[Rfam]
Shown here is a 72-nucleotide RNA from Mucor saturninus, a member of the family "tRNA". The organism belongs to Mucor, within Eukaryota. The match comes from Rfam's covariance-model search (66 bits). By type it is a transfer RNA.

RNA sequence: GUUUUGGUAGCUUAAAUGGUAGAGCGUACGACUGAAAAUCGUAGUGAGGAGGUUCAAUUCCUCCCCAGAACA
Dot-bracket structure: (((((((..((((........)))).(((((.......)))))....(((((.......)))))))))))).